A member of the RNA family "Glutamine-II riboswitch aptamer" from Triticum aestivum, 55 nucleotides long. It scores 33 bits against the family's covariance model. On this family, see Huang et al., Nucleic Acids Res 2019: "Structure and ligand binding of the glutamine-II riboswitch".

RNA sequence: AACCGUUCAUCCUCGAAGGACGCAGCGGGCUCCGAGUCAAGGAUCGGGGCCGGAG
Numbered sequence: 001a002a003c004c005g006u007u008c009a010u011c012c013u014c015g016a017a018g019g020a021c022g023c024a025g026c027g028g029g030c031u032c033c034g035a036g037u038c039a040a041g042g043a044u045c046g047g048g049g050c051c052g053g054a055g
Base pairs, nucleotide, nucleotide: 004046005045007043008042010020011019012018013017030055031054032053033052034051036050037049038048
Dot-bracket structure: ...[[.[[.((((...)))).........(((((.(((...]].]].))))))))